[Rfam]
RNA sequence: AGUAUAUUGUUAGUAGUGGCUUAUAUAAGUUCAUAAUUGGGUGAACGUAUCUACCAACUACCGUAAAAAGUUGCCUAUAAGACUCCACUAUUAACAG
Numbered sequence: 001a002g003u004a005u006a007u008u009g010u011u012a013g014u015a016g017u018g019g020c021u022u023a024u025a026u027a028a029g030u031u032c033a034u035a036a037u038u039g040g041g042u043g044a045a046c047g048u049a050u051c052u053a054c055c056a057a058c059u060a061c062c063g064u065a066a067a068a069a070g071u072u073g074c075c076u077a078u079a080a081g082a083c084u085c086c087a088c089u090a091u092u093a094a095c096a097g
Base pairs, nucleotide, nucleotide: 018083020081021080022079023078024077025076029046030045031044032043033042034041055073056072057071058070059069

This 97-nucleotide RNA from Acetivibrio ethanolgignens belongs to the Rfam family "Purine riboswitch aptamer".
The source organism's lineage runs through Bacteria, Bacillati, Clostridia, Acetivibrionales and Acetivibrio.
Pairs were carried over by alignment from the consensus structure, which is taken from published work.
A search with the family's covariance model found it, with a score of 54 bits.
From the family's description: Riboswitches are metabolite binding domains within certain messenger RNAs that serve as precision sensors for their corresponding targets.